[Rfam]
RNA: U1 spliceosomal RNA
RNA sequence: AUACUUACCUGGCACAAGAGAUACCGUGAUCACGAAGGCGGUUUUCCCAGGGUGAGGCUCACCAUUGCACUCCGGUGAUGCUGACCCUUGCGAUUAACCCAAAUGUGGUUAACUCGGGUGUGCAAUUUUUGUUAGCGGGGGACUGCGUUCGCGCUAUCCCCCU
Numbered sequence: 001a002u003a004c005u006u007a008c009c010u011g012g013c014a015c016a017a018g019a020g021a022u023a024c025c026g027u028g029a030u031c032a033c034g035a036a037g038g039c040g041g042u043u044u045u046c047c048c049a050g051g052g053u054g055a056g057g058c059u060c061a062c063c064a065u066u067g068c069a070c071u072c073c074g075g076u077g078a079u080g081c082u083g084a085c086c087c088u089u090g091c092g093a094u095u096a097a098c099c100c101a102a103a104u105g106u107g108g109u110u111a112a113c114u115c116g117g118g119u120g121u122g123c124a125a126u127u128u129u130u131g132u133u134a135g136c137g138g139g140g141g142a143c144u145g146c147g148u149u150c151g152c153g154c155u156a157u158c159c160c161c162c163u
Base pairs, nucleotide, nucleotide: 012121013120014119015118018046019045020044021043023042024041025040026039027038049089050088051087052086054085056082057081058080059078060077061076062075063074091116092115093114094112095111096110098108099107137162138161139160140159141158142157145154146153147152